A member of the RNA family "Small nucleolar RNA ZL1" from Myotis davidii, 205 nucleotides long.
The literature on the family includes a 2013 paper in Genome Biol by Kishore et al., "Insights into snoRNA biogenesis and processing from PAR-CLIP of snoRNA core proteins and small RNA sequencing".
Rfam describes the family as follows. Host gene TRRAP. Predicted target U2@U47. Only GU-rich region is homologous to other known snoRNAs. Conserved in vertebrates.

RNA sequence: GGAGAAGCAAAGUGAUGAUCAUUACUGGCUGGAGCCCUGAAGAGGCACAGUGUGUGUGUGUGUGUGUGUGUGUGUGUAUUUAUCUGUCCUUGUCUGCAUGUACACAUGUGUCUGAGAGUAUGAAUGCGCCUGACUGGUUGUAGGGAACUAGUUAUGUGCCUUCUGUUGGACUAUGACAGUCAAACUGAUAAGAUCUGAUUGCUUC
Numbered sequence: 001g002g003a004g005a006a007g008c009a010a011a012g013u014g015a016u017g018a019u020c021a022u023u024a025c026u027g028g029c030u031g032g033a034g035c036c037c038u039g040a041a042g043a044g045g046c047a048c049a050g051u052g053u054g055u056g057u058g059u060g061u062g063u064g065u066g067u068g069u070g071u072g073u074g075u076g077u078a079u080u081u082a083u084c085u086g087u088c089c090u091u092g093u094c095u096g097c098a099u100g101u102a103c104a105c106a107u108g109u110g111u112c113u114g115a116g117a118g119u120a121u122g123a124a125u126g127c128g129c130c131u132g133a134c135u136g137g138u139u140g141u142a143g144g145g146a147a148c149u150a151g152u153u154a155u156g157u158g159c160c161u162u163c164u165g166u167u168g169g170a171c172u173a174u175g176a177c178a179g180u181c182a183a184a185c186u187g188a189u190a191a192g193a194u195c196u197g198a199u200u201g202c203u204u205c
Stems, first nucleotide, its partner, number of pairs: 004205007014195003026182006036116001038114002041111001043109001045107001050103008062094001066089001068087003118131001121128001134151006153175004158171001160169002